[Rfam]
Nucleotides: 148
Base pairs, nucleotide, nucleotide: 003062004061005060006059007058008057016049017048018047019046020045022042023041024040025039080142081141082140083139084138086136093128094127095126097124100121101120
Number, partner (000 for none) and nucleotide at each position: 001000g002000u003062u004061g005060c006059u007058u008057c009000a010000u011000a012000c013000u014000g015000g016049u017048g018047a019046a020045c021000g022042c023041u024040c025039u026000c027000a028000a029000a030000a031000u032000a033000a034000c035000a036000g037000u038000g039025a040024g041023g042022g043000a044000u045020g046019u047018u048017c049016a050000u051000g052000u053000u054000u055000c056000c057008g058007a059006a060005g061004c062003a063000u064000a065000u066000a067000u068000u069000a070000a071000u072000u073000a074000a075000u076000u077000u078000u079000a080142g081141c082140c083139a084138g085000u086136a087000u088000u089000a090000a091000a092000c093128a094127g095126c096000g097124c098000u099000u100121u101120g102000c103000g104000u105000u106000u107000a108000u109000g110000a111000u112000c113000u114000c115000a116000c117000a118000g119000g120101c121100a122000u123000u124097g125000c126095g127094c128093u129000a130000c131000c132000u133000g134000u135000c136086u137000c138084c139083u140082g141081g142080u143000a144000u145000a146000u147000u148000u

Notes:
This 148-nucleotide RNA sequence from Hibiscus trionum belongs to the Rfam family "small nucleolar RNA snoR137". It scores 118 bits against the family's covariance model. Lineage of the source: Eukaryota > Embryophyta > Gunneridae > Malvoideae > Hibiscus. The family's RNA type in Rfam is H/ACA-box small nucleolar RNA.